[Rfam]
RNA sequence: CUCUCCGAUGAUGAUGUGAAAAUUACUUUCGUUCUUCUGAAGUUGUCCGUGUGGAAGAACAAUUUGGAGACCUGAGCUGAGGAGCU
Numbered sequence: 001c002u003c004u005c006c007g008a009u010g011a012u013g014a015u016g017u018g019a020a021a022a023u024u025a026c027u028u029u030c031g032u033u034c035u036u037c038u039g040a041a042g043u044u045g046u047c048c049g050u051g052u053g054g055a056a057g058a059a060c061a062a063u064u065u066g067g068a069g070a071c072c073u074g075a076g077c078u079g080a081g082g083a084g085c086u
Base pairs, nucleotide, nucleotide: 003084004083005082006081
Dot-bracket structure: ..((((..........................................................................))))..